[Rfam]
Nucleotides: 133
Base pairs, nucleotide, nucleotide: 003059004058005057006056018045019044021042022041024039025038073122074121075120076119077118086113088111090108091107092106093105094104
Number, partner (000 for none) and nucleotide at each position: 001000u002000u003059c004058c005057a006056c007000a008000g009000c010000u011000a012000c013000u014000g015000g016000u017000c018045u019044g020000c021042a022041g023000c024039u025038g026000u027000u028000u029000u030000u031000a032000u033000g034000g035000u036000a037000g038025c039024a040000a041022u042021u043000a044019u045018g046000c047000c048000a049000u050000u051000c052000c053000u054000c055000u056006g057005u058004g059003g060000g061000a062000a063000a064000g065000a066000a067000a068000c069000u070000g071000u072000u073122a074121c075120a076119u077118g078000a079000u080000u081000a082000a083000a084000c085000a086113u087000c088111u089000a090108u091107u092106u093105c094104u095000u096000a097000g098000c099000a100000a101000a102000a103000c104094a105093g106092a107091a108090a109000g110000u111088a112000a113086g114000c115000a116000u117000a118077u119076g120075u121074g122073u123000g124000a125000c126000a127000g128000a129000u130000a131000c132000a133000a
Source information: Small nucleolar RNA SNORA41: a 133-nucleotide RNA from Orycteropus afer. Rfam classes the family as an H/ACA-box small nucleolar RNA. For this family Rfam cites "RNomics: an experimental approach that identifies 201 candidates for novel, small, non-messenger RNAs in mouse" (Huttenhofer et al., EMBO J, 2001). From the family's description: ACA41 is a member of the H/ACA class of snoRNA that guide the sites of modification of uridines to pseudouridines. The family's consensus secondary structure was predicted with PFOLD.